This 103-nucleotide sequence from Micromonospora inyonensis belongs to the Rfam family "Actinobacteria sRNA Ms_IGR-7".

[Rfam]
RNA sequence: CGAGAGUGCCCUUCUGGGUUGGUGUGAUCUGAGUUCUUGACAAACCCGAUCAUCCCAGCUCAGAGGGCACUCUCGUCACAUAUUCGCGCUGUUCCGGCCACAG
Numbered sequence: 001c002g003a004g005a006g007u008g009c010c011c012u013u014c015u016g017g018g019u020u021g022g023u024g025u026g027a028u029c030u031g032a033g034u035u036c037u038u039g040a041c042a043a044a045c046c047c048g049a050u051c052a053u054c055c056c057a058g059c060u061c062a063g064a065g066g067g068c069a070c071u072c073u074c075g076u077c078a079c080a081u082a083u084u085c086g087c088g089c090u091g092u093u094c095c096g097g098c099c100a101c102a103g
Base pairs, nucleotide, nucleotide: 002074003073004072005071006070007069008068009067010066011065012064013063015062016061017060019058020057021056022055025052026051027050028049031047033045034044035043
Dot-bracket structure: .((((((((((((.(((.((((..((((..(.(((.......))).).))))..)))).))))))))))))))).............................

The match comes from Rfam's covariance-model search (54 bits). The family's RNA type in Rfam is small RNA. The base pairs follow the family's consensus structure. The literature on the family includes a 2013 paper in RNA by Li et al., "Identification of small RNAs in Mycobacterium smegmatis using heterologous Hfq".